[Rfam]
RNA sequence: GCUGAGCUUGGUAGCGCGAGCUUGUAACCUGAGUGGGGGCUUUAAGGUGCCGGAAUAUGAGUUUGGCUUUGCUGAGUCGGAUCUCGGGUGGUUUGACUCUGGCUUGUCCGUUCCAGUUUAGAGUGAGCCAAGGGGCUUGAGUGUAAACUCUUGAGUCUCGGGGUUCCUGAAGUGGAGGGUACUGCGUGAGGCUGGUUUCACAGAGCAACGAAGACCUCUCUCUCUUUACAGUGGAAGGAUUACAAGCUUGAUCCACUCCGAUCCAACAUUGCUUAGCGAGCUAACCCUGACUGGACAUUCAUCCUU
Numbered sequence: 001g002c003u004g005a006g007c008u009u010g011g012u013a014g015c016g017c018g019a020g021c022u023u024g025u026a027a028c029c030u031g032a033g034u035g036g037g038g039g040c041u042u043u044a045a046g047g048u049g050c051c052g053g054a055a056u057a058u059g060a061g062u063u064u065g066g067c068u069u070u071g072c073u074g075a076g077u078c079g080g081a082u083c084u085c086g087g088g089u090g091g092u093u094u095g096a097c098u099c100u101g102g103c104u105u106g107u108c109c110g111u112u113c114c115a116g117u118u119u120a121g122a123g124u125g126a127g128c129c130a131a132g133g134g135g136c137u138u139g140a141g142u143g144u145a146a147a148c149u150c151u152u153g154a155g156u157c158u159c160g161g162g163g164u165u166c167c168u169g170a171a172g173u174g175g176a177g178g179g180u181a182c183u184g185c186g187u188g189a190g191g192c193u194g195g196u197u198u199c200a201c202a203g204a205g206c207a208a209c210g211a212a213g214a215c216c217u218c219u220c221u222c223u224c225u226u227u228a229c230a231g232u233g234g235a236a237g238g239a240u241u242a243c244a245a246g247c248u249u250g251a252u253c254c255a256c257u258c259c260g261a262u263c264c265a266a267c268a269u270u271g272c273u274u275a276g277c278g279a280g281c282u283a284a285c286c287c288u289g290a291c292u293g294g295a296c297a298u299u300c301a302u303c304c305u306u
Base pairs, nucleotide, nucleotide: 001040002039003038004023005022006021007020008019009018010017028037029036030035044305046303047302048301049300053296056293057292058290060288063284064283065282066281067280069279070278071277072276073275074274075273076272077271079264080263081262082261083260086257087256089255090254091253094251099250101248102247103246104245105244106243107242108238109237111236112235113234114233115232116229117228120225121224122223123222125166126165127164128163129162132159133158134157135156136155137154138153139152140149141148142147167172174219175218176217177216178215183212185210186209187208192203193202194201

A member of the RNA family "Plant signal recognition particle RNA" from Gossypium mustelinum, 306 nucleotides long.
By type it is a non-coding RNA gene.
Gene Ontology terms of the family: signal recognition particle, endoplasmic reticulum targeting and SRP-dependent cotranslational protein targeting to membrane, signal sequence recognition.
The source organism's lineage runs through Eukaryota, Euphyllophyta, Mesangiospermae, eudicotyledons and Gossypium.
The family's consensus secondary structure is taken from published work.
The match comes from Rfam's covariance-model search (188 bits).